RNA sequence: UCGUAAGUCGCCGUUGGCAUCUGCCAGCGGCGGCAAGCUUCGUUCUUCUCACAGGGAGGCAACGGAGUUUCACCAGAAAAAGGAA
Numbered sequence: 001u002c003g004u005a006a007g008u009c010g011c012c013g014u015u016g017g018c019a020u021c022u023g024c025c026a027g028c029g030g031c032g033g034c035a036a037g038c039u040u041c042g043u044u045c046u047u048c049u050c051a052c053a054g055g056g057a058g059g060c061a062a063c064g065g066a067g068u069u070u071c072a073c074c075a076g077a078a079a080a081a082g083g084a085a
Base pairs, nucleotide, nucleotide: 007034008033009032010031011030012029013028014027015026017024018023035070036069037068038067039066040065041064042063043062044061046059047058049056050055